[Rfam]
RNA sequence: GCGCAGUGCGGAGGGCCACCUCGGUGUCUCUUAUGGCAGAAGUCCGCUGCAGCUUUGAGCGCGGCUGGGCUGUGCGCUGCAUCCCGUACCGAAUGCACACCGGGCGAAAGUCCCCGGGCGAUGGGGCAGAGAGUGCCAUCCCGAAAGGGCAGGACCCUUGCGCGCCUUUUUGAGGCCGCAGGGCAGCUCGCCAUAGCAACAGUUAUGUGGCCAGUGGAGAUACAAUCCACCAACACAACGGGGCUUACUCCCGCACUGACG
Numbered sequence: 001g002c003g004c005a006g007u008g009c010g011g012a013g014g015g016c017c018a019c020c021u022c023g024g025u026g027u028c029u030c031u032u033a034u035g036g037c038a039g040a041a042g043u044c045c046g047c048u049g050c051a052g053c054u055u056u057g058a059g060c061g062c063g064g065c066u067g068g069g070c071u072g073u074g075c076g077c078u079g080c081a082u083c084c085c086g087u088a089c090c091g092a093a094u095g096c097a098c099a100c101c102g103g104g105c106g107a108a109a110g111u112c113c114c115c116g117g118g119c120g121a122u123g124g125g126g127c128a129g130a131g132a133g134u135g136c137c138a139u140c141c142c143g144a145a146a147g148g149g150c151a152g153g154a155c156c157c158u159u160g161c162g163c164g165c166c167u168u169u170u171u172g173a174g175g176c177c178g179c180a181g182g183g184c185a186g187c188u189c190g191c192c193a194u195a196g197c198a199a200c201a202g203u204u205a206u207g208u209g210g211c212c213a214g215u216g217g218a219g220a221u222a223c224a225a226u227c228c229a230c231c232a233a234c235a236c237a238a239c240g241g242g243g244c245u246u247a248c249u250c251c252c253g254c255a256c257u258g259a260c261g
Stems, first nucleotide, its partner, number of pairs: 002261002004258008014212006021103007036087002039084001041082001108246003112243004125137004140149003152184001158181005164176004214230005
Description:
The family of this 261-nucleotide RNA sequence from Pleodorina starrii is "RNase MRP". NCBI's taxonomy places the organism under Eukaryota, core chlorophytes, Chlorophyceae, Volvocaceae, Pleodorina. The family's consensus secondary structure is taken from published work. Rfam describes the family as follows. RNase MRP is an enzymatically active ribonucleoprotein with two distinct roles in eukaryotes. In mitochondria it plays a direct role in the initiation of mitochondrial DNA replication. In the nucleus it is involved in precursor rRNA processing, where it cleaves the internal transcribed spacer 1 between 18S and 5.8S rRNAs. Despite distinct functions, RNase MRP has been shown to be evolutionarily related to RNase P. Like eukaryotic RNase P, RNase MRP is not catalytically active without associated protein subunits. Clan: RNaseP clan.